[Rfam]
This 319-nucleotide RNA from Candidatus Methanoperedens sp. belongs to the Rfam family "Archaeal RNase P".
Its family is annotated with tRNA processing, ribonuclease P activity and multimeric ribonuclease P complex in the Gene Ontology.
Taxonomically the source falls in Candidatus Methanoperedens (Archaea, Methanomicrobia, Methanosarcinales, ANME-2 cluster).
The literature on the family includes a 1998 paper in Annu Rev Biochem by Frank and Pace, "Ribonuclease P: unity and diversity in a tRNA processing ribozyme".
Rfam describes the family as follows. Ribonuclease P (RNase P) is a ubiquitous endoribonuclease, found in archaea, bacteria and eukarya as well as chloroplasts and mitochondria. Its best characterised activity is the generation of mature 5'-ends of tRNAs by cleaving the 5'-leader elements of precursor-tRNAs.
The family is grouped with related families in Rfam's "RNaseP clan".
It is annotated as a ribozyme.
Pairs were carried over by alignment from the consensus structure, which is taken from published work.
RNA sequence: GAGAGAGGAAGGGCGGCUGCCGGCAGCAAUGCUGAGGAAAGUCCCCUCACCAUCUGGACCGCGGAUGCACGCAAGUGCGUAGGGUGAGAAUCCUGGCUCUGGAACAGAAACGAUACUGCAGCGCAGAAAUGCGAUGAUUCCGAAAGGAUGAGGUCAUGCGUUUGCGGAUGGAACGGCGAAUCCCCGCGGGUGCAAGCCGAAAUAGGACAUAAUGGGCAGUCCAGACCUGUCCGAGUCCGGCGCAAAGCUGAAUGCCGCAUAUGCGCAACAGGGGUUUUACUCCUCGUGCUAAACAUAAAGGGGCUUACUCUCCUCACUC
Numbered sequence: 001g002a003g004a005g006a007g008g009a010a011g012g013g014c015g016g017c018u019g020c021c022g023g024c025a026g027c028a029a030u031g032c033u034g035a036g037g038a039a040a041g042u043c044c045c046c047u048c049a050c051c052a053u054c055u056g057g058a059c060c061g062c063g064g065a066u067g068c069a070c071g072c073a074a075g076u077g078c079g080u081a082g083g084g085u086g087a088g089a090a091u092c093c094u095g096g097c098u099c100u101g102g103a104a105c106a107g108a109a110a111c112g113a114u115a116c117u118g119c120a121g122c123g124c125a126g127a128a129a130u131g132c133g134a135u136g137a138u139u140c141c142g143a144a145a146g147g148a149u150g151a152g153g154u155c156a157u158g159c160g161u162u163u164g165c166g167g168a169u170g171g172a173a174c175g176g177c178g179a180a181u182c183c184c185c186g187c188g189g190g191u192g193c194a195a196g197c198c199g200a201a202a203u204a205g206g207a208c209a210u211a212a213u214g215g216g217c218a219g220u221c222c223a224g225a226c227c228u229g230u231c232c233g234a235g236u237c238c239g240g241c242g243c244a245a246a247g248c249u250g251a252a253u254g255c256c257g258c259a260u261a262u263g264c265g266c267a268a269c270a271g272g273g274g275u276u277u278u279a280c281u282c283c284u285c286g287u288g289c290u291a292a293a294c295a296u297a298a299a300g301g302g303g304c305u306u307a308c309u310c311u312c313c314u315c316a317c318u319c
Base pairs, nucleotide, nucleotide: 001319002318003317005315006314007313008312009311010309011308013258014257015256016255017254021034022033023032024031025030039306040305041304043303044302045301046300047299048192049191050190051189053224056221057220060188061187062186063185064184065080066079067078068077069076081094082093083092084091085090095183096182100179102177116167117166118165120162121161122160123159124158125157139148140147196241197240198239199238205232206231207230208229209228
Dot-bracket structure: (((.(((((((.(((((...(((((....)))))....[[[.[[[[[((((.[..[[..((((((((((......)))))(((((....)))))((...(.(.............(((.((((((.............((......))........))))))..))).........).)..)))))))))))...((((.....(((((..........]]..]...))))).....))))............)))))........................................]]]]]]]].)).))))).)))